[Rfam]
RNA sequence: GAGUUCGCGGCCGUGGCGAGGUUAAGGGGGUUAAGCCCCGUAGCCGCAGGGAAACCGACAUGCCCGCAGCCGGGCUUAUGCCCGGUGAGGGGCGGGGUGCGAAAGCGCCCGGAGUCACGGCCGCGAGACCCGAAACCGGUCGAUCUAGCCCGGGGCAGGGUGAAGUCCCUCAACAGAGGGAUGGAGGCCCGCUAGGGGUGCUGAUGUGCAGUUCGCUCCCGUGACCCCGGGCUAGGGGUGAAAGGCCAAUCGAGGCCGGAGAUAGCUGGUU
Numbered sequence: 001g002a003g004u005u006c007g008c009g010g011c012c013g014u015g016g017c018g019a020g021g022u023u024a025a026g027g028g029g030g031u032u033a034a035g036c037c038c039c040g041u042a043g044c045c046g047c048a049g050g051g052a053a054a055c056c057g058a059c060a061u062g063c064c065c066g067c068a069g070c071c072g073g074g075c076u077u078a079u080g081c082c083c084g085g086u087g088a089g090g091g092g093c094g095g096g097g098u099g100c101g102a103a104a105g106c107g108c109c110c111g112g113a114g115u116c117a118c119g120g121c122c123g124c125g126a127g128a129c130c131c132g133a134a135a136c137c138g139g140u141c142g143a144u145c146u147a148g149c150c151c152g153g154g155g156c157a158g159g160g161u162g163a164a165g166u167c168c169c170u171c172a173a174c175a176g177a178g179g180g181a182u183g184g185a186g187g188c189c190c191g192c193u194a195g196g197g198g199u200g201c202u203g204a205u206g207u208g209c210a211g212u213u214c215g216c217u218c219c220c221g222u223g224a225c226c227c228c229g230g231g232c233u234a235g236g237g238g239u240g241a242a243a244g245g246c247c248a249a250u251c252g253a254g255g256c257c258g259g260a261g262a263u264a265g266c267u268g269g270u271u
Base pairs, nucleotide, nucleotide: 005126006125007124008123009122010121011120012119013118014117015116016115017114020045021044022043023042026039027038028037029036049056050055062093063092064091065090069086070085071084072083073082074081075080096109097108098107099106129269130268132266136259137258138257139256140255141254145235146234147233148232149231150230151229152228153227154226155225156223158190159189160188161187165182166181167180168179169178170177171176195220196219197218198217200216201215203214204213237247238246239245
RNA: Archaeal large subunit ribosomal RNA, nucleotides 677 to 947
Organism: Pyrococcus horikoshii